The record is a 181-nucleotide RNA sequence from Neogobius melanostomus, which matches "Small nucleolar RNA SNORA23" in Rfam. For this family Rfam cites "RNomics: an experimental approach that identifies 201 candidates for novel, small, non-messenger RNAs in mouse" (Huttenhofer et al., EMBO J, 2001).
RNA sequence: GGUGGCCGGUGUGCAUGGUGAUGGUCUGUGUAUUGUGUUGCUGCAGGUCUGCGUUUUGCAGGUUCUGCAGCAGCGCUCACGCCACACCUGUAGCCACAGAACAGUCGGAGAUCAUAGUACUGGCCUUUGAUUGUCAUAUUUGACUUCUUGCAUUGGUUAGCCUCCAAACUCUCCAACACAA
Dot-bracket structure: ............(((.............(((.(.(((((((.(((((..(((.....)))...))))).)))))).).).)).)....)))...............(((((........((((((..((...((((....))))......))..)))))).........))))).......
Numbered sequence: 001g002g003u004g005g006c007c008g009g010u011g012u013g014c015a016u017g018g019u020g021a022u023g024g025u026c027u028g029u030g031u032a033u034u035g036u037g038u039u040g041c042u043g044c045a046g047g048u049c050u051g052c053g054u055u056u057u058g059c060a061g062g063u064u065c066u067g068c069a070g071c072a073g074c075g076c077u078c079a080c081g082c083c084a085c086a087c088c089u090g091u092a093g094c095c096a097c098a099g100a101a102c103a104g105u106c107g108g109a110g111a112u113c114a115u116a117g118u119a120c121u122g123g124c125c126u127u128u129g130a131u132u133g134u135c136a137u138a139u140u141u142g143a144c145u146u147c148u149u150g151c152a153u154u155g156g157u158u159a160g161c162c163u164c165c166a167a168a169c170u171c172u173c174c175a176a177c178a179c180a181a
Stems, first nucleotide, its partner, number of pairs: 013091003029084001030082002033079001035077001036075006043068005050060003107174005120160006128152002133144004
By type it is an H/ACA-box small nucleolar RNA.
The base pairs follow the family's consensus structure, which was predicted with RNAalifold.
Rfam's curators write: The members of this family belong to the H/ACA class of snoRNAs which are thought to guide the sites of modification of uridines to pseudouridines.